[Rfam]
Nucleotides: 122
Base pairs, nucleotide, nucleotide: 012030013029014028015027016026017025018024019023041068042067043066044065045064046063047062048061073116074115075114076113077112078111079110080109081108083107084106087102088101089100090099091098092097
Number, partner (000 for none) and nucleotide at each position: 001000u002000u003000u004000a005000a006000a007000c008000u009000u010000g011000u012030g013029a014028g015027u016026u017025u018024g019023c020000u021000u022000u023019g024018c025017a026016a027015a028014c029013u030012c031000c032000u033000u034000a035000u036000u037000a038000u039000a040000u041068g042067c043066c044065g045064u046063u047062u048061c049000u050000c051000a052000u053000u054000a055000c056000a057000u058000u059000g060000c061048g062047a063046a064045a065044c066043g067042g068041c069000g070000g071000a072000a073116a074115u075114u076113c077112a078111u079110c080109a081108a082000u083107g084106c085000u086000c087102g088101a089100u090099u091098u092097u093000u094000g095000a096000u097092a098091a099090a100089a101088u102087c103000u104000g105000c106084g107083c108081u109080u110079g111078a112077u113076g114075a115074a116073u117000u118000u119000a120000u121000c122000a
About this RNA
A member of the RNA family "TD-1 RNA" from Treponema pedis, 122 nucleotides long. The family's consensus secondary structure is taken from published work. The family's RNA type in Rfam is cis-regulatory element. The match comes from Rfam's covariance-model search (70 bits).